RNA sequence: UGUCAUACUUUAGCAGCACGUAAAUAUUGGUGUUAAGACUGUAAAUAUCUCCAGUAUUAACUGUGCUGCUGAAGUAAGGCUAGC
Dot-bracket structure: .((......((((((((((((.((((((((.(................).)))))))).).)))))))))))......))....